Notes: Bacterial large subunit ribosomal RNA: a 336-nucleotide part of an RNA from Coleofasciculus chthonoplastes. Lineage of the source: Bacteria > Bacillati > Cyanophyceae > Coleofasciculales > Coleofasciculus chthonoplastes. Pairs were carried over by alignment from the consensus structure, which is taken from published work.

[Rfam]
RNA sequence: CGAGAUAACUCUCUCUAAGGAACUCGGCAAAAUGACCCCGUAACUUCGGGAGAAGGGGUACCCACGAGAGUGGGUCGCAGUGAAGAGAUCCAGGCGACUGUUUACCAAAAACACAGGUCUCCGCUAAGUCGCAAGACGAUGUAUGGGGGCUGACGCCUGCCCAGUGCCGGAAGGUUAAGGAAGUUGGUUAGCCCAUUGGGCGAAGCUAGCGACCGAAGCCCCGGUGAACGGCGGCCGUAACUAUAACGGUCCUAAGGUAGCGAAAUUCCUUGUCGGGUAAGUUCCGACCCGCACGAAAGGCGUAACGAUCUGGAUACUGUCUCGGAGAGAGACUCG
Numbered sequence: 001c002g003a004g005a006u007a008a009c010u011c012u013c014u015c016u017a018a019g020g021a022a023c024u025c026g027g028c029a030a031a032a033u034g035a036c037c038c039c040g041u042a043a044c045u046u047c048g049g050g051a052g053a054a055g056g057g058g059u060a061c062c063c064a065c066g067a068g069a070g071u072g073g074g075u076c077g078c079a080g081u082g083a084a085g086a087g088a089u090c091c092a093g094g095c096g097a098c099u100g101u102u103u104a105c106c107a108a109a110a111a112c113a114c115a116g117g118u119c120u121c122c123g124c125u126a127a128g129u130c131g132c133a134a135g136a137c138g139a140u141g142u143a144u145g146g147g148g149g150c151u152g153a154c155g156c157c158u159g160c161c162c163a164g165u166g167c168c169g170g171a172a173g174g175u176u177a178a179g180g181a182a183g184u185u186g187g188u189u190a191g192c193c194c195a196u197u198g199g200g201c202g203a204a205g206c207u208a209g210c211g212a213c214c215g216a217a218g219c220c221c222c223g224g225u226g227a228a229c230g231g232c233g234g235c236c237g238u239a240a241c242u243a244u245a246a247c248g249g250u251c252c253u254a255a256g257g258u259a260g261c262g263a264a265a266u267u268c269c270u271u272g273u274c275g276g277g278u279a280a281g282u283u284c285c286g287a288c289c290c291g292c293a294c295g296a297a298a299g300g301c302g303u304a305a306c307g308a309u310c311u312g313g314a315u316a317c318u319g320u321c322u323c324g325g326a327g328a329g330a331g332a333c334u335c336g
Stems, first nucleotide, its partner, number of pairs: 001336004009331008018322003035059005044049001060075006076080001088315007095307002099113003116151008124141001128137003154302004159232003164229002166225005173220003179214002183210006191201002233251006252256001262289001272288006